[Rfam]
RNA: mir-7883 microRNA precursor family
Organism: Panagrellus redivivus
RNA sequence: AUUUGAGUCCACGAUGCACCUUGUAACGGUAAUUCAAGGUACACCGUGAACUCAAAU
Numbered sequence: 001a002u003u004u005g006a007g008u009c010c011a012c013g014a015u016g017c018a019c020c021u022u023g024u025a026a027c028g029g030u031a032a033u034u035c036a037a038g039g040u041a042c043a044c045c046g047u048g049a050a051c052u053c054a055a056a057u
Stems, first nucleotide, its partner, number of pairs: 001057008010048004015043002018040006